[Rfam]
RNA: Group II catalytic intron D1-D4-5
Organism: Scopulibacillus darangshiensis
RNA sequence: CUGAAGGGUUAUGUUGGGAGUCAAAUGAGGAGGUAAGUCUCUGAAAGGCUUUCCCUGCGUCGAAUAGCACGCUAUUUGGUAAGAAAUUGUGUGUUAUAAGCUCGGCCAAUAGGCGUGAGAAUUUACCGUAACAGUUUGGCUGACGAAAGCCUACCCGAUGGGGUGGUGUAAAUCAUGGUGCUUGGGUUGAACAA
Numbered sequence: 001c002u003g004a005a006g007g008g009u010u011a012u013g014u015u016g017g018g019a020g021u022c023a024a025a026u027g028a029g030g031a032g033g034u035a036a037g038u039c040u041c042u043g044a045a046a047g048g049c050u051u052u053c054c055c056u057g058c059g060u061c062g063a064a065u066a067g068c069a070c071g072c073u074a075u076u077u078g079g080u081a082a083g084a085a086a087u088u089g090u091g092u093g094u095u096a097u098a099a100g101c102u103c104g105g106c107c108a109a110u111a112g113g114c115g116u117g118a119g120a121a122u123u124u125a126c127c128g129u130a131a132c133a134g135u136u137u138g139g140c141u142g143a144c145g146a147a148a149g150c151c152u153a154c155c156c157g158a159u160g161g162g163g164u165g166g167u168g169u170a171a172a173u174c175a176u177g178g179u180g181c182u183u184g185g186g187u188u189g190a191a192c193a194a
Stems, first nucleotide, its partner, number of pairs: 018051005030042001032040002053186003060105004064097009074087004112182005121173006127145003133141002149167003153164004